Shown here is a 53-nucleotide sequence from Odobenus rosmarus, a member of the family "mir-1302 microRNA precursor family".

[Rfam]
RNA sequence: UAAUUAGUAUAAGUAUGUCCCAUGCAAUAUUUGGGAUAUAAUUUAUGCUGAAA
Dot-bracket structure: .....(((((((.(((.(((((........).)))).)))..)))))))....
Taxonomically the source falls in Odobenus rosmarus (Eukaryota, Bilateria, Deuterostomia, Dipnotetrapodomorpha). The family has 24 seed sequences and 16,160 matches in Rfam 15.1. The match comes from Rfam's covariance-model search (62 bits). Gene Ontology terms of the family: miRNA-mediated post-transcriptional gene silencing and RISC complex. A reference for the family is Morin et al. (2008), "Application of massively parallel sequencing to microRNA profiling and discovery in human embryonic stem cells", Genome Res.